About this RNA: Small nucleolar RNA SNORA15: a 137-nucleotide sequence from Platysteira castanea. By type it is an H/ACA-box small nucleolar RNA. Rfam describes the family as follows. ACA15 is a member of the H/ACA class of snoRNA that guide the sites of modification of uridines to pseudouridines. NCBI's taxonomy places the organism under Eukaryota, Bilateria, Sarcopterygii, Sauria, Platysteira. For this family Rfam cites "RNomics: an experimental approach that identifies 201 candidates for novel, small, non-messenger RNAs in mouse" (Huttenhofer et al., EMBO J, 2001).
RNA sequence: GCAUGGAUGAAUUCUGCACUAGCUUUCCUCAGUAGCUAAGGCAGUCAGACACCAUGCCAGAGCAAAUUCCUUUUUUUCCACUGUGCCUGGUGUGCUUUUUAUGGGAAUGGGCAUGCCCUUGGAAGGGGAAAACAGAA
Dot-bracket structure: ((((((.......((((.......................)))).......)))))).............((((((((((........(((((((((...........)))))))))..))))))).))).......